A member of the RNA family "Pseudomonas sRNA CrcZ" from Pseudomonas cavernae, 402 nucleotides long. Pairs were carried over by alignment from the consensus structure, which was predicted with WAR. Rfam 15.1 lists 127 matches to the family in 96 species. Its family is annotated with carbon catabolite repression of transcription in the Gene Ontology. The source organism's lineage runs through Bacteria, Pseudomonadati, Pseudomonadota, Gammaproteobacteria and Pseudomonas. For this family Rfam cites "Identification of 17 Pseudomonas aeruginosa sRNAs and prediction of sRNA-encoding genes in 10 diverse pathogens using the bioinformatic tool sRNAPredict2" (Livny et al., Nucleic Acids Res, 2006).
RNA sequence: ACAACAACAAUAACAAGCAAUGCCCAACACAAUAAAAACAACACGUACCGACUCCGGCAUAACAAAAACAACAACGCAGGGGACGCAGCUAACUGAUUCUUUUGGAGAGGACUAGCCGUUGGGGUUCGCCCCACAACCAGACCGAGAACAAUAAAACUGCUCUAAAGCAGCGCCCGAACUGGUUGGAUCAAUUGACGAUAAUGGCUGCAUCAGCUUCCAAAGCAAUCCGUUUGCUACUGACUCCCAGUUUGGGAGUUUUUCCUGAAGCCACUGGGCGAAUGGAACGGGUCAACAAACAAAAACAACAAGCCCGAAAUAAUAAUAAAAACAAAGCACGCACCUACUUGGGGGGGAGCCUCGGCUCCCCCAGUAGCUUCAACUCCCCGCCGCUGUCUCGUACAC
Numbered sequence: 001a002c003a004a005c006a007a008c009a010a011u012a013a014c015a016a017g018c019a020a021u022g023c024c025c026a027a028c029a030c031a032a033u034a035a036a037a038a039c040a041a042c043a044c045g046u047a048c049c050g051a052c053u054c055c056g057g058c059a060u061a062a063c064a065a066a067a068a069c070a071a072c073a074a075c076g077c078a079g080g081g082g083a084c085g086c087a088g089c090u091a092a093c094u095g096a097u098u099c100u101u102u103u104g105g106a107g108a109g110g111a112c113u114a115g116c117c118g119u120u121g122g123g124g125u126u127c128g129c130c131c132c133a134c135a136a137c138c139a140g141a142c143c144g145a146g147a148a149c150a151a152u153a154a155a156a157c158u159g160c161u162c163u164a165a166a167g168c169a170g171c172g173c174c175c176g177a178a179c180u181g182g183u184u185g186g187a188u189c190a191a192u193u194g195a196c197g198a199u200a201a202u203g204g205c206u207g208c209a210u211c212a213g214c215u216u217c218c219a220a221a222g223c224a225a226u227c228c229g230u231u232u233g234c235u236a237c238u239g240a241c242u243c244c245c246a247g248u249u250u251g252g253g254a255g256u257u258u259u260u261c262c263u264g265a266a267g268c269c270a271c272u273g274g275g276c277g278a279a280u281g282g283a284a285c286g287g288g289u290c291a292a293c294a295a296a297c298a299a300a301a302a303c304a305a306c307a308a309g310c311c312c313g314a315a316a317u318a319a320u321a322a323u324a325a326a327a328a329c330a331a332a333g334c335a336c337g338c339a340c341c342u343a344c345u346u347g348g349g350g351g352g353g354a355g356c357c358u359c360g361g362c363u364c365c366c367c368c369a370g371u372a373g374c375u376u377c378a379a380c381u382c383c384c385c386g387c388c389g390c391u392g393u394c395u396c397g398u399a400c401a402c
Base pairs, nucleotide, nucleotide: 049085050084052082053081054080055079100222101221102220103219104218114215115214116213134185135184136183137182138181139180140179157170158169159168160167161166240256241255242254243253244252281383282382283381287312288311290309331376332375333374334373348371349368350367351366352365353364354363355362356361